The record is a 189-nucleotide RNA from Brevibacillus borstelensis, which matches "Lysine riboswitch aptamer" in Rfam. A search with the family's covariance model found it, with a score of 94 bits. Riboswitches are metabolite binding domains within certain messenger RNAs that serve as precision sensors for their corresponding targets.

RNA sequence: GAUGAGGAUAGAGGUCGCGGCUUUUAUAUUAUUCUGUACGAGAUCCAGAGAAGAUUGAUGACUCCAGAAGAAGGAAAAGCUGCCGAAGUCUGCCGUGUAUUCUCUGUACACACAGGCUGGGGCUGUACCCGACAAGGGACAGAACUGUCACGUUUGCCAGCCGAGCAAGCGUGGUGUGCUAUCUUCCGU
Number, nucleotide and partner (000 for none) at each position: 001g000002a000003u000004g000005a000006g184007g183008a182009u181010a180011g179012a000013g000014g000015u000016c000017g083018c082019g081020g080021c079022u078023u077024u076025u075026a000027u000028a000029u000030u000031a000032u069033u068034c067035u066036g065037u000038a063039c000040g000041a000042g000043a000044u000045c000046c000047a000048g000049a000050g000051a000052a000053g000054a000055u000056u000057g000058a000059u000060g000061a000062c000063u038064c000065c036066a035067g034068a033069a032070g000071a000072a000073g000074g000075a025076a024077a023078a022079g021080c020081u019082g018083c017084c000085g000086a000087a118088g117089u116090c115091u114092g113093c000094c000095g111096u110097g109098u108099a107100u000101u000102c000103u000104c000105u000106g000107u099108a098109c097110a096111c095112a000113c092114a091115g090116g089117c088118u087119g146120g145121g000122g000123c142124u141125g140126u139127a000128c137129c136130c000131g000132a000133c000134a000135a000136g129137g128138g000139a126140c125141a124142g123143a000144a000145c120146u119147g000148u174149c173150a172151c171152g170153u169154u168155u167156g166157c000158c000159a000160g000161c000162c000163g000164a000165g000166c156167a155168a154169g153170c152171g151172u150173g149174g148175u000176g000177u000178g000179c011180u010181a009182u008183c007184u006185u000186c000187c000188g000189u000